[Rfam]
RNA sequence: UGGAAGUGAUGAAAUAGAGAUAAUUGGAUGUCUCUUUGAAUGGAGUGUGCGUGAUAAAUGGAACUUACACCAAGUCACACUGGGGGUGGGGGUGGGGAGCGUGUGUGUGUGUAUGGCAAAGGCUUUAAAUGGGGGCACUGAUAAGGCAGUGCUGAUUCCGGAGUGCAUCUGAGGCACGUUGUUCAAUUCUGGGGUGCUGCUUCACAACUGUGCUGAUGAUUAAAGCCCAAAAUAAGCCCACCAAGACAAGCCUGGGCAUCCUGAAUCUCUAACAGGUUCAUUAACAGAAGUGAUCCUGUGAGCUGAUCCAA
Number, nucleotide and partner (000 for none) at each position: 001u310002g309003g308004a307005a000006g000007u000008g000009a000010u000011g000012a000013a000014a000015u000016a000017g000018a000019g000020a000021u000022a000023a000024u000025u000026g000027g000028a000029u000030g000031u000032c000033u000034c000035u000036u000037u000038g000039a000040a000041u000042g000043g000044a000045g000046u000047g000048u000049g000050c000051g000052u000053g000054a000055u000056a000057a000058a000059u000060g000061g000062a000063a000064c000065u000066u000067a000068c000069a000070c000071c000072a000073a000074g000075u000076c000077a000078c000079a000080c000081u000082g000083g000084g000085g000086g000087u000088g000089g000090g000091g000092g000093u000094g000095g000096g000097g000098a000099g000100c000101g000102u000103g000104u000105g000106u000107g000108u000109g000110u000111g000112u000113a000114u000115g000116g000117c000118a000119a000120a000121g000122g000123c000124u000125u000126u000127a000128a000129a000130u000131g000132g000133g000134g000135g000136c000137a000138c000139u000140g000141a000142u000143a000144a000145g000146g000147c000148a000149g000150u000151g000152c000153u000154g000155a000156u000157u000158c000159c000160g000161g000162a000163g000164u000165g000166c000167a000168u000169c000170u000171g000172a000173g000174g000175c000176a209177c000178g208179u207180u206181g205182u204183u000184c199185a198186a000187u196188u000189c194190u000191g000192g000193g000194g189195u000196g187197c000198u185199g184200c000201u000202u000203c000204a182205c181206a180207a179208c178209u176210g000211u000212g000213c000214u000215g000216a000217u000218g000219a000220u000221u000222a000223a000224a000225g000226c000227c000228c000229a000230a000231a000232a000233u000234a000235a000236g000237c000238c000239c000240a000241c000242c000243a000244a000245g000246a000247c000248a000249a000250g000251c000252c000253u000254g000255g000256g000257c000258a000259u000260c000261c000262u000263g000264a000265a000266u000267c000268u000269c000270u000271a000272a000273c000274a000275g000276g000277u000278u000279c000280a000281u000282u000283a000284a000285c000286a000287g000288a000289a000290g000291u000292g000293a000294u000295c000296c000297u000298g000299u000300g000301a000302g000303c000304u000305g000306a000307u004308c003309c002310a001311a000